Source information
mir-9193 microRNA precursor family: a 74-nucleotide sequence from Myotis myotis. A search with the family's covariance model found it, with a score of 65 bits. Rfam 15.1 lists 6,008 matches to the family in 8 species.

RNA sequence: GGGGGGGCGGGGAGGUCCCUCAGCCCGGAUUGCAAGAGGGCUCAGGCCAGGCCGAGGGACCCCACUGGUGCAUG
Numbered sequence: 001g002g003g004g005g006g007g008c009g010g011g012g013a014g015g016u017c018c019c020u021c022a023g024c025c026c027g028g029a030u031u032g033c034a035a036g037a038g039g040g041c042u043c044a045g046g047c048c049a050g051g052c053c054g055a056g057g058g059a060c061c062c063c064a065c066u067g068g069u070g071c072a073u074g
Stems, first nucleotide, its partner, number of pairs: 004071001006069001008067003012063001014061008023052003027048002030045003